[Rfam]
RNA sequence: GCUGAGUUGGGUAGCGCCAACUUGUGACCCAAGUGGGAGCACCAAAGUGAUGGAACGUGGCUACCGCUUGUUUGGCUGGUCUGUUAGCUGCAAUAUGCUGGCCUGCCCGCUCCAAGUUGAGAGUUUUGCCUCGGGACAUGGGUGAAGGUCUAUGUCUCUUGGUCCCUAGACGAGGGGGAAUUGCGUGAGGCUGGUUUCACAGAGCAGCGAAUACUUCUGGCUCCCAACAGUGGAGGGACUACAGGCUGCUGCACUUCCAGUCCACUAAGCCCGGUGAGCCUAGCCUUUGAACCAUCACUUUU
Numbered sequence: 001g002c003u004g005a006g007u008u009g010g011g012u013a014g015c016g017c018c019a020a021c022u023u024g025u026g027a028c029c030c031a032a033g034u035g036g037g038a039g040c041a042c043c044a045a046a047g048u049g050a051u052g053g054a055a056c057g058u059g060g061c062u063a064c065c066g067c068u069u070g071u072u073u074g075g076c077u078g079g080u081c082u083g084u085u086a087g088c089u090g091c092a093a094u095a096u097g098c099u100g101g102c103c104u105g106c107c108c109g110c111u112c113c114a115a116g117u118u119g120a121g122a123g124u125u126u127u128g129c130c131u132c133g134g135g136a137c138a139u140g141g142g143u144g145a146a147g148g149u150c151u152a153u154g155u156c157u158c159u160u161g162g163u164c165c166c167u168a169g170a171c172g173a174g175g176g177g178g179a180a181u182u183g184c185g186u187g188a189g190g191c192u193g194g195u196u197u198c199a200c201a202g203a204g205c206a207g208c209g210a211a212u213a214c215u216u217c218u219g220g221c222u223c224c225c226a227a228c229a230g231u232g233g234a235g236g237g238a239c240u241a242c243a244g245g246c247u248g249c250u251g252c253a254c255u256u257c258c259a260g261u262c263c264a265c266u267a268a269g270c271c272c273g274g275u276g277a278g279c280c281u282a283g284c285c286u287u288u289g290a291a292c293c294a295u296c297a298c299u300u301u302u
Stems, first nucleotide, its partner, number of pairs: 001040003004023007028037003044301010056289002059285005068277005074271004078263002081260003086255001089253002093250001099248007107237002110235005116228004121223004128163003133158011173218005182211001184209003191202003
The family of this 302-nucleotide RNA from Medicago truncatula is "Plant signal recognition particle RNA". The base pairs follow the family's consensus structure, which is taken from published work.